RNA sequence: UAUAAAUGGGGAUAUAAAUUGGGACAAAGAGAUUAAAUUGGUAAUUUUUCUUACAUCUCCCCCUUUUAGAGCCCAUAUAUCAUAUACGCUCCUCAAAAUAAAGAACCUUGAAUAGUAGAACAAAAGCACAUAUACCUAAUAAGAUUAAGUGAAUACCUAAAAUUGUGGUCAUUUUAUUUGGAUCUUUCCA
Numbered sequence: 001u002a003u004a005a006a007u008g009g010g011g012a013u014a015u016a017a018a019u020u021g022g023g024a025c026a027a028a029g030a031g032a033u034u035a036a037a038u039u040g041g042u043a044a045u046u047u048u049u050c051u052u053a054c055a056u057c058u059c060c061c062c063c064u065u066u067u068a069g070a071g072c073c074c075a076u077a078u079a080u081c082a083u084a085u086a087c088g089c090u091c092c093u094c095a096a097a098a099u100a101a102a103g104a105a106c107c108u109u110g111a112a113u114a115g116u117a118g119a120a121c122a123a124a125a126g127c128a129c130a131u132a133u134a135c136c137u138a139a140u141a142a143g144a145u146u147a148a149g150u151g152a153a154u155a156c157c158u159a160a161a162a163u164u165g166u167g168g169u170c171a172u173u174u175u176a177u178u179u180g181g182a183u184c185u186u187u188c189c190a
Stems, first nucleotide, its partner, number of pairs: 148187002151184002156181002159178002
Rfam assigns this 190-nucleotide RNA from Anisodus acutangulus to the family "Antisense RNA which regulates isiA expression".